[Rfam]
RNA sequence: AAAGACCGGCACGGGUAAGGCCGUAGCGCGCCGCCCGGUAGCGAGUGUUGCGUAGGCGUCGGUGACGGCGGCUGCGAAGCGUACACAGCGACUUGCUGGGGUGCGGGAUUGAGCUUCGAAAGCCAUACAAUCGCGGAGGCCGAGGCAGUCAUUAAGUGCAAUAUGUGCGGCACCGUUAAGCGAGGUGCUGACGCUCCGCCGGAGUCGGAGACCG
Numbered sequence: 001a002a003a004g005a006c007c008g009g010c011a012c013g014g015g016u017a018a019g020g021c022c023g024u025a026g027c028g029c030g031c032c033g034c035c036c037g038g039u040a041g042c043g044a045g046u047g048u049u050g051c052g053u054a055g056g057c058g059u060c061g062g063u064g065a066c067g068g069c070g071g072c073u074g075c076g077a078a079g080c081g082u083a084c085a086c087a088g089c090g091a092c093u094u095g096c097u098g099g100g101g102u103g104c105g106g107g108a109u110u111g112a113g114c115u116u117c118g119a120a121a122g123c124c125a126u127a128c129a130a131u132c133g134c135g136g137a138g139g140c141c142g143a144g145g146c147a148g149u150c151a152u153u154a155a156g157u158g159c160a161a162u163a164u165g166u167g168c169g170g171c172a173c174c175g176u177u178a179a180g181c182g183a184g185g186u187g188c189u190g191a192c193g194c195u196c197c198g199c200c201g202g203a204g205u206c207g208g209a210g211a212c213c214g
Stems, first nucleotide, its partner, number of pairs: 012037004019032003023029001024183001026181002039091001041089002045086004049081002051076005057070005110208001111206001113205006133199006139159002164193002168190007
A member of the RNA family "Group II catalytic intron D1-D4-6" from Candidatus Methylaffinis lahnbergensis, 214 nucleotides long. The pairing is the family consensus, mapped onto this sequence. NCBI's taxonomy places the organism under Bacteria, Pseudomonadota, Alphaproteobacteria, Beijerinckiaceae, Candidatus Methylaffinis. From the family's description: Group II introns are found in rRNA, tRNA and mRNA of organelles in fungi, plants and protists, and also in mRNA in bacteria.